RNA sequence: UAGUGUUACAAAGCUUUUAGAAUUUGUCUAGCAGGUUUUCUGGUCCACACUGAAAAACCCUC
Numbered sequence: 001u002a003g004u005g006u007u008a009c010a011a012a013g014c015u016u017u018u019a020g021a022a023u024u025u026g027u028c029u030a031g032c033a034g035g036u037u038u039u040c041u042g043g044u045c046c047a048c049a050c051u052g053a054a055a056a057a058c059c060c061u062c
Base pairs, nucleotide, nucleotide: 034059035058036057037056038055039054041052042051043050044049
About this RNA
Shown here is a 62-nucleotide RNA sequence from Sus scrofa, a member of the family "U7 small nuclear RNA". It scores 55 bits against the family's covariance model. Lineage of the source: Eukaryota > Eumetazoa > Eutheria > Suina > Sus.